[Rfam]
RNA: Small nucleolar RNA SNORD72
RNA sequence: AUCGUUGAUGAUGUACUUAAUACAAAUGUCUGAACAUAUGAAAUAUAAGCAUAGUGAUUCUUACAUUUAACUGAGACGAGAC
Dot-bracket structure: .(((((....................................................................)))))...